[Rfam]
RNA sequence: UCCUCUUCAACGCUGCGUUUCUAUGCCACAAACGGAAAGUCUUGCUCACCGCAUUACUUUCACUCCCUCUUCGGAGGAACCUCUUUACGCAUAUGAGAAAUUCGGAGAAUCUGCUUCACACCAGCUCGUCCGUCCCACAGCCUCCUCCGGGGGGUUUGUGCCGAUGGGUCGCGAGCUCUGCCGGUGACGGCUUGACGCAACUUUGCGUCUGUAAUUGGCAUCAGAAAAGCAGGGCCCAGGAGAGCUGCUUCGGCGGUUUCUUGCUGGUGUCCCUCUGGGAGAGUCAUUACGAAGCUUGUGAGAGAAUCACUUGAGUGCAAUACGCGGCGUGUGGCUGUCUCUUCUUUGGAGGGGCAGCCUCAUCCUUCGAUUCCGAUUACUCUGUUGAGGA
Number, nucleotide and partner (000 for none) at each position: 001u391002c390003c389004u388005c000006u000007u000008c384009a383010a000011c000012g328013c327014u326015g325016c324017g323018u322019u000020u000021c000022u093023a092024u091025g090026c000027c000028a000029c000030a000031a000032a000033c000034g000035g061036a060037a059038a058039g057040u056041c000042u000043u000044g000045c000046u000047c000048a000049c000050c000051g000052c000053a000054u000055u000056a040057c039058u038059u037060u036061c035062a000063c000064u000065c000066c000067c000068u000069c000070u000071u000072c000073g000074g000075a000076g000077g000078a000079a000080c000081c000082u000083c000084u000085u000086u000087a000088c000089g000090c025091a024092u023093a022094u000095g000096a000097g000098a000099a000100a000101u000102u000103c375104g374105g373106a372107g371108a000109a000110u000111c000112u000113g295114c294115u293116u292117c000118a000119c000120a000121c000122c000123a000124g000125c000126u000127c000128g000129u000130c000131c000132g000133u000134c000135c000136c000137a000138c000139a000140g000141c000142c000143u000144c000145c000146u000147c000148c000149g000150g000151g000152g000153g000154g000155u000156u000157u000158g000159u000160g000161c000162c000163g000164a000165u000166g000167g000168g000169u000170c000171g000172c000173g000174a000175g000176c000177u000178c000179u000180g191181c190182c189183g188184g000185u000186g000187a000188c183189g182190g181191c180192u000193u000194g209195a208196c207197g206198c205199a000200a000201c000202u000203u000204u000205g198206c197207g196208u195209c194210u000211g290212u289213a288214a287215u000216u000217g285218g284219c283220a000221u000222c000223a000224g000225a000226a000227a000228a000229g000230c000231a274232g273233g272234g000235c000236c000237c000238a000239g000240g000241a000242g000243a000244g000245c000246u000247g000248c000249u000250u000251c000252g000253g000254c000255g000256g000257u000258u000259u000260c000261u000262u000263g000264c000265u000266g000267g000268u000269g000270u000271c000272c233273c232274u231275c000276u000277g000278g000279g000280a000281g000282a000283g219284u218285c217286a000287u214288u213289a212290c211291g000292a116293a115294g114295c113296u000297u000298g000299u000300g000301a000302g000303a000304g000305a000306a000307u000308c000309a000310c000311u000312u000313g000314a000315g000316u000317g000318c000319a000320a000321u000322a018323c017324g016325c015326g014327g013328c012329g363330u362331g361332u000333g359334g358335c357336u356337g355338u354339c353340u352341c351342u350343u349344c000345u000346u000347u000348g000349g343350a342351g341352g340353g339354g338355c337356a336357g335358c334359c333360u000361c331362a330363u329364c000365c000366u000367u000368c000369g000370a000371u107372u106373c105374c104375g103376a000377u000378u000379a000380c000381u000382c000383u009384g008385u000386u000387g000388a004389g003390g002391a001
RNA: Nuclear RNase P